Rfam assigns this 103-nucleotide sequence from Macaca fascicularis to the family "Y RNA".
About the family: Y RNAs are components of the Ro ribonucleoprotein particle (Ro RNP), in association with Ro60 and La proteins.
On this family, see Teunissen et al., Nucleic Acids Res 2000: "Conserved features of Y RNAs: a comparison of experimentally derived secondary structures".
It is annotated as a non-coding RNA gene.
Pairs were carried over by alignment from the consensus structure, which is taken from published work.
It scores 58 bits against the family's covariance model.

RNA sequence: GGCCGGUCCAAAAGUAGUGAAUUAUUUCAAUCAAUUGUUCACAGUUACAGAUCCAACUCUUUCUCUUUCCCCCCUUCUCACUACUGCACUUCACUAGUCAUAA
Numbered sequence: 001g002g003c004c005g006g007u008c009c010a011a012a013a014g015u016a017g018u019g020a021a022u023u024a025u026u027u028c029a030a031u032c033a034a035u036u037g038u039u040c041a042c043a044g045u046u047a048c049a050g051a052u053c054c055a056a057c058u059c060u061u062u063c064u065c066u067u068u069c070c071c072c073c074c075u076u077c078u079c080a081c082u083a084c085u086g087c088a089c090u091u092c093a094c095u096a097g098u099c100a101u102a103a
Stems, first nucleotide, its partner, number of pairs: 001099003005095003010091002014087002016082005030064001033061002